[Rfam]
RNA sequence: AAUUACAUUACAGCCUUUUUAGAAUUUAUCUAACAGGUUUUCUGGUCUUUACCAGAAAGUGCCCUG
Dot-bracket structure: ...................................(((((((((((....))))))))..)))...
The record is a 66-nucleotide RNA sequence from Saimiri boliviensis, which matches "U7 small nuclear RNA" in Rfam. Rfam describes the family as follows. Animal histone pre-mRNAs are spliced by a different mechanism than nuclear pre-mRNAs and self-splicing introns. This processing involves the U7 snRNP, which contains only one RNA species: U7. The family's consensus secondary structure was predicted with PFOLD. Lineage of the source: Eukaryota > Deuterostomia > Euteleostomi > Primates > Saimiri boliviensis.